Rfam assigns this 114-nucleotide RNA sequence from Helicobacter felis to the family "purD RNA motif". Its family is annotated with regulation of gene expression in the Gene Ontology. The base pairs follow the family's consensus structure, which is taken from published work. The family's RNA type in Rfam is cis-regulatory element.
[Rfam]
RNA sequence: GUAGUGGCUUUUGUGUGCUUGGUGUUUCCUUUUAAGGAUUUGCCACCUAAGAAGGUCCUCCUAGCCGAUUCGUAGCUUCGUUGAACUACGCAACAUAGUAACGGUCAUUUGGGU
Numbered sequence: 001g002u003a004g005u006g007g008c009u010u011u012u013g014u015g016u017g018c019u020u021g022g023u024g025u026u027u028c029c030u031u032u033u034a035a036g037g038a039u040u041u042g043c044c045a046c047c048u049a050a051g052a053a054g055g056u057c058c059u060c061c062u063a064g065c066c067g068a069u070u071c072g073u074a075g076c077u078u079c080g081u082u083g084a085a086c087u088a089c090g091c092a093a094c095a096u097a098g099u100a101a102c103g104g105u106c107a108u109u110u111g112g113g114u
Base pairs, nucleotide, nucleotide: 003059004058006057007056008055009054010053020045021044022043023042024041027038028037029036072089073088074087075086077084078083